[Rfam]
Nucleotides: 082
Stems, first nucleotide, its partner, number of pairs: 014070005020064003024058004030053003034049002
Number, partner (000 for none) and nucleotide at each position: 001000c002000u003000g004000a005000c006000c007000u008000g009000c010000c011000g012000a013000u014070g015069a016068a017067g018066g019000g020064a021063g022062c023000a024058u025057u026056c027055a028000c029000u030053g031052a032051c033000u034049g035048u036000c037000u038000g039000a040000a041000u042000a043000u044000a045000c046000g047000c048035a049034c050000u051032g052031u053030c054000a055027u056026g057025g058024a059000g060000u061000u062022g063021c064020u065000c066018u067017c068016u069015u070014u071000a072000u073000u074000g075000a076000a077000g078000g079000u080000c081000u082000a